[Rfam]
RNA sequence: GGCCAUGUUUUUCCACAGCUUUCUUGAACUUCUUCUCCAUAUUCUCCAACAAUUCUCCAAUUCUCGUGUGAAGAUUUACCAGUUUGAAGCUCAAGAAAGCUGUGGGACAUCAUGGCAU
Dot-bracket structure: ..(((((.....(((.((((((.((((.((((.....................................................)))).)))).)))))).))).....)))))...
The family of this 118-nucleotide sequence from Momordica charantia is "MIR396 microRNA precursor family". Pairs were carried over by alignment from the consensus structure, which was predicted with WAR. For this family Rfam cites "Expression of Arabidopsis MIRNA genes" (Xie et al., Plant Physiol, 2005). Taxonomically the source falls in Momordica (Eukaryota, Viridiplantae, Gunneridae, Cucurbitales). A search with the family's covariance model found it, with a score of 86 bits.